[Rfam]
The family of this 75-nucleotide sequence from Ignelater luminosus is "mir-1 microRNA precursor family".
RNA sequence: UCGAGAGUUCCGUGCUUCCUUACUUCCCAUAGUGCUUUAAGACGUAUGGAAUGUAAAGAAGUAUGGAGCAAACGA
Numbered sequence: 001u002c003g004a005g006a007g008u009u010c011c012g013u014g015c016u017u018c019c020u021u022a023c024u025u026c027c028c029a030u031a032g033u034g035c036u037u038u039a040a041g042a043c044g045u046a047u048g049g050a051a052u053g054u055a056a057a058g059a060a061g062u063a064u065g066g067a068g069c070a071a072a073c074g075a
Base pairs, nucleotide, nucleotide: 007069008068009067010066011065012064013063014062015061016060017059018058020056021055022054023053025051027049028048029047030046031045
A reference for the family is Lee and Ambros (2001), "An extensive class of small RNAs in Caenorhabditis elegans", Science. Rfam links the family to the GO terms RISC complex and miRNA-mediated post-transcriptional gene silencing. The source organism's lineage runs through Eukaryota, Metazoa, Elateriformia, Elateroidea and Ignelater. Rfam describes the family as follows. This family represents the microRNA (miRNA) mir-1 family. miRNAs are transcribed as ~70nt precursors (modelled here) and subsequently processed by the Dicer enzyme to give a ~22nt product.